[Rfam]
The record is a 34-nucleotide RNA, which matches "L31-Coriobacteria ribosomal protein leader" in Rfam. A reference for the family is Eckert and Weinberg (2020), "Discovery of 20 novel ribosomal leader candidates in bacteria and archaea", BMC Microbiol.
RNA sequence: GUUCUGGUCGGUAACCAGAACACUUGCGAAGGAG
Numbered sequence: 001g002u003u004c005u006g007g008u009c010g011g012u013a014a015c016c017a018g019a020a021c022a023c024u025u026g027c028g029a030a031g032g033a034g
Stems, first nucleotide, its partner, number of pairs: 001021008